The record is an 87-nucleotide RNA from Solanum commersonii, which matches "Small nucleolar RNA U54" in Rfam.
On this family, see Chen et al., Nucleic Acids Res 2003: "The high diversity of snoRNAs in plants: identification and comparative study of 120 snoRNA genes from Oryza sativa".
Pairs were carried over by alignment from the consensus structure, which was predicted with PFOLD.
About the family: U54 is a C/D box small nucleolar RNA, which acts as a methylation guide for 18S ribosomal RNA in plants.
Lineage of the source: Eukaryota > Streptophyta > Spermatophyta > Pentapetalae > Solanum.
The match comes from Rfam's covariance-model search (41 bits).

RNA sequence: AGCUCAAUGAUUGUAUACCUUUUGGCAAUAUACACUAUACCGAUCUAAAGCAUGAGUAGAUGAUUUUUUUUUCCAAGUAUGAGAGCG
Numbered sequence: 001a002g003c004u005c006a007a008u009g010a011u012u013g014u015a016u017a018c019c020u021u022u023u024g025g026c027a028a029u030a031u032a033c034a035c036u037a038u039a040c041c042g043a044u045c046u047a048a049a050g051c052a053u054g055a056g057u058a059g060a061u062g063a064u065u066u067u068u069u070u071u072u073c074c075a076a077g078u079a080u081g082a083g084a085g086c087g
Base pairs, nucleotide, nucleotide: 002086003085004084005083